[Rfam]
RNA sequence: UGAAUAGUCAGGCAAACCUAUUGAAAGGUAGGGACGCAAAGCUAGAGGGACUAAAUCCGCAAGGGUAAGUCAGCCAGUUGCAUGA
Numbered sequence: 001u002g003a004a005u006a007g008u009c010a011g012g013c014a015a016a017c018c019u020a021u022u023g024a025a026a027g028g029u030a031g032g033g034a035c036g037c038a039a040a041g042c043u044a045g046a047g048g049g050a051c052u053a054a055a056u057c058c059g060c061a062a063g064g065g066u067a068a069g070u071c072a073g074c075c076a077g078u079u080g081c082a083u084g085a
Stems, first nucleotide, its partner, number of pairs: 012037002017032006040079004047075002049071003056065003
This 85-nucleotide sequence from Paenibacillus oryzae belongs to the Rfam family "c-di-GMP-I riboswitch aptamer". The organism belongs to Paenibacillus, within Bacteria. It scores 68 bits against the family's covariance model.